[Rfam]
Shown here is a 61-nucleotide sequence from Chondrocystis sp. NIES-4102, a member of the family "Plastid-psbN 5UTR RNA". About the family: Plastid psbN is a non-coding RNA (ncRNA) recognised in plastids.

RNA sequence: AAAAACUCCCAUUAGCAGAGUUGUUCCCCAGCCUGGAGAUACUUUACCAUAUUCAGAGUUC
Numbered sequence: 001a002a003a004a005a006c007u008c009c010c011a012u013u014a015g016c017a018g019a020g021u022u023g024u025u026c027c028c029c030a031g032c033c034u035g036g037a038g039a040u041a042c043u044u045u046a047c048c049a050u051a052u053u054c055a056g057a058g059u060u061c
Stems, first nucleotide, its partner, number of pairs: 017045005024038004
NCBI's taxonomy places the organism under Bacteria, Bacillati, Cyanobacteriota, Oscillatoriophycideae, Chondrocystis. It is annotated as a cis-regulatory element. A reference for the family is Richter et al. (2023), "Retrograde signaling in plants: A critical review focusing on the GUN pathway and beyond", Plant Commun. It scores 55 bits against the family's covariance model.